[Rfam]
Description
This 54-nucleotide RNA sequence from Megalops atlanticus belongs to the Rfam family "UnaL2 LINE 3' element". A reference for the family is Baba et al. (2004), "Solution structure of an RNA stem-loop derived from the 3' conserved region of eel LINE UnaL2", RNA. It scores 56 bits against the family's covariance model. By type it is a cis-regulatory element.
RNA sequence: UAUAUGCACUUUUGUACAUUGCUUUGGAUAAAAGCGUCUGCUAAAUGAAUAAAU
Numbered sequence: 001u002a003u004a005u006g007c008a009c010u011u012u013u014g015u016a017c018a019u020u021g022c023u024u025u026g027g028a029u030a031a032a033a034g035c036g037u038c039u040g041c042u043a044a045a046u047g048a049a050u051a052a053a054u
Stems, first nucleotide, its partner, number of pairs: 013043001014041003020036006